Rfam assigns this 178-nucleotide RNA from Melghiribacillus thermohalophilus to the family "glmS glucosamine-6-phosphate activated ribozyme aptamer". The base pairs follow the family's consensus structure, which is taken from published work.
[Rfam]
RNA sequence: AACUGAAUCAAAGCGCCAGGACUAUUUCCCGUGGACGAGAAAGGGGAAAUAGUUGACGAGGAGGAGGUUCAUCGAAGGAUCGGCGGGUACCUCCCGGUUGCCCGGCAUCUCAGCCGUCAUGUUUUAGACUGAAAACAAAGAGGCGACUCUUUGCACAAAGGUCUGAAACCAGAUGCCC
Numbered sequence: 001a002a003c004u005g006a007a008u009c010a011a012a013g014c015g016c017c018a019g020g021a022c023u024a025u026u027u028c029c030c031g032u033g034g035a036c037g038a039g040a041a042a043g044g045g046g047a048a049a050u051a052g053u054u055g056a057c058g059a060g061g062a063g064g065a066g067g068u069u070c071a072u073c074g075a076a077g078g079a080u081c082g083g084c085g086g087g088u089a090c091c092u093c094c095c096g097g098u099u100g101c102c103c104g105g106c107a108u109c110u111c112a113g114c115c116g117u118c119a120u121g122u123u124u125u126a127g128a129c130u131g132a133a134a135a136c137a138a139a140g141a142g143g144c145g146a147c148u149c150u151u152u153g154c155a156c157a158a159a160g161g162u163c164u165g166a167a168a169c170c171a172g173a174u175g176c177c178c
Stems, first nucleotide, its partner, number of pairs: 020054008029045001063094005072083004095116006122168007136153007

This entry contains a glucosamine-6-phosphate activated ribozyme that is found in the mRNA for GlmS. GlmS is an enzyme that uses fructose-6-phosphate and glutamine to generate glucosamine-6-phosphate. The ribozyme catalyses self cleavage of the glmS mRNA that is thought to regulate GlmS activity.